[Rfam]
RNA sequence: AAAUCAUCCCCUAAGUUUUGCAACUGUGGCAAUUUUGACCCCAAGGCCAAUUUUUGGUAAAAAGAAAUAAAAAAAUUAACACGUAGCACCUCACUUAGGGUGCCGCGUUAGCGUAGACCGAGUCAAAAUUGGCCUUGGGGGCCAAAACUGCCAUAGAUGUAAAAUUUAGGGGGCGAUUU
Number, nucleotide and partner (000 for none) at each position: 001a179002a178003a000004u176005c175006a000007u173008c172009c000010c000011c000012u168013a167014a166015g165016u164017u163018u162019u161020g160021c159022a158023a000024c156025u155026g154027u153028g152029g151030c150031a149032a000033u147034u146035u145036u144037g143038a000039c141040c139041c138042c137043a136044a135045g000046g000047c000048c000049a000050a000051u000052u000053u000054u000055u000056g000057g000058u000059a000060a000061a000062a000063a000064g000065a000066a000067a000068u000069a000070a000071a000072a000073a000074a000075a000076u000077u000078a000079a000080c000081a108082c107083g000084u105085a000086g103087c102088a101089c100090c099091u000092c000093a000094c000095u000096u000097a000098g000099g090100g089101u088102g087103c086104c000105g084106c000107g082108u081109u000110a000111g000112c000113g000114u000115a000116g000117a000118c000119c000120g000121a000122g000123u000124c000125a000126a000127a000128a000129u000130u000131g000132g000133c000134c000135u044136u043137g042138g041139g040140g000141g039142c000143c037144a036145a035146a034147a033148c000149u031150g030151c029152c028153a027154u026155a025156g024157a000158u022159g021160u020161a019162a018163a017164a016165u015166u014167u013168a012169g000170g000171g000172g008173g007174c000175g005176a004177u000178u002179u001
RNA: MIR2619 microRNA precursor family
Organism: Medicago truncatula